[Rfam]
RNA: radC RNA
RNA sequence: AAGCUUCUAAGCGCUGCCGUUGGCAGCACCCCAGAUGGCCAGAGCCUUCAAGGUCAUGCCGCUAACGCGGUGGCUCAGCCCAUAGUGCGACACGCGCCCGGAGGCUCGCACAGUCACUCGCUGAGUGAUGGACGC
Numbered sequence: 001a002a003g004c005u006u007c008u009a010a011g012c013g014c015u016g017c018c019g020u021u022g023g024c025a026g027c028a029c030c031c032c033a034g035a036u037g038g039c040c041a042g043a044g045c046c047u048u049c050a051a052g053g054u055c056a057u058g059c060c061g062c063u064a065a066c067g068c069g070g071u072g073g074c075u076c077a078g079c080c081c082a083u084a085g086u087g088c089g090a091c092a093c094g095c096g097c098c099c100g101g102a103g104g105c106u107c108g109c110a111c112a113g114u115c116a117c118u119c120g121c122u123g124a125g126u127g128a129u130g131g132a133c134g135c
Stems, first nucleotide, its partner, number of pairs: 013027006035057006043075004058071005107134002113129007